This 192-nucleotide RNA from Lachancea fermentati belongs to the Rfam family "Small nucleolar RNA snR34". The organism belongs to Lachancea, within Eukaryota. Gene Ontology terms of the family: nucleolus and RNA processing. The base pairs follow the family's consensus structure, which was predicted with WAR.
RNA sequence: GAAUCAAAAAUGCACGGAAACAAUGCCACAGUUAGCUCAUUCUGUCUUCUAACAGUUGCUAAUUGCCAGUAUUUCAAAUAUAAUUGAAAUACCAGUUUCCCAGAACAAGCUUGACUGGAUUAUGGAAGUUCGUAGUCCGUGCGUUCUCUUAGGAGAAUGAUAGACUAGGAAUGUCGAAGAAAGGCUACAUUU
Numbered sequence: 001g002a003a004u005c006a007a008a009a010a011u012g013c014a015c016g017g018a019a020a021c022a023a024u025g026c027c028a029c030a031g032u033u034a035g036c037u038c039a040u041u042c043u044g045u046c047u048u049c050u051a052a053c054a055g056u057u058g059c060u061a062a063u064u065g066c067c068a069g070u071a072u073u074u075c076a077a078a079u080a081u082a083a084u085u086g087a088a089a090u091a092c093c094a095g096u097u098u099c100c101c102a103g104a105a106c107a108a109g110c111u112u113g114a115c116u117g118g119a120u121u122a123u124g125g126a127a128g129u130u131c132g133u134a135g136u137c138c139g140u141g142c143g144u145u146c147u148c149u150u151a152g153g154a155g156a157a158u159g160a161u162a163g164a165c166u167a168g169g170a171a172u173g174u175c176g177a178a179g180a181a182a183g184g185c186u187a188c189a190u191u192u
Stems, first nucleotide, its partner, number of pairs: 016075004030064007042055004110183003115179001128172004133167001135165003141161001142159007